[Rfam]
RNA: RNase MRP
RNA sequence: CGAGCACAUGACGAAGUGAGCGGGCUCUUUGUAGCCCUGGAAAGUCCCCGGGCCCUCAACCGCAGAGAUGCGGCCGCGGAGGCGCGGAAAGUCUCAGCGCUCGCGCCCUCCUCUUCGCGAGGGGGCAGAGACACGUGUGGAGCCCUUCGGGCGCGAGCCGAGAUCAUAAUGGCCAAUUACACAGUUAUUCACUUGAUCCAUCUCCGGAUUAACAGAACGGGGCUUACGAUUGUGUGCAA
Numbered sequence: 001c002g003a004g005c006a007c008a009u010g011a012c013g014a015a016g017u018g019a020g021c022g023g024g025c026u027c028u029u030u031g032u033a034g035c036c037c038u039g040g041a042a043a044g045u046c047c048c049c050g051g052g053c054c055c056u057c058a059a060c061c062g063c064a065g066a067g068a069u070g071c072g073g074c075c076g077c078g079g080a081g082g083c084g085c086g087g088a089a090a091g092u093c094u095c096a097g098c099g100c101u102c103g104c105g106c107c108c109u110c111c112u113c114u115u116c117g118c119g120a121g122g123g124g125g126c127a128g129a130g131a132c133a134c135g136u137g138u139g140g141a142g143c144c145c146u147u148c149g150g151g152c153g154c155g156a157g158c159c160g161a162g163a164u165c166a167u168a169a170u171g172g173c174c175a176a177u178u179a180c181a182c183a184g185u186u187a188u189u190c191a192c193u194u195g196a197u198c199c200a201u202c203u204c205c206g207g208a209u210u211a212a213c214a215g216a217a218c219g220g221g222g223c224u225u226a227c228g229a230u231u232g233u234g235u236g237c238a239a
Stems, first nucleotide, its partner, number of pairs: 004237008014194006022037005042225003046222004061072004074087005099158006111151003123145004131138002196209004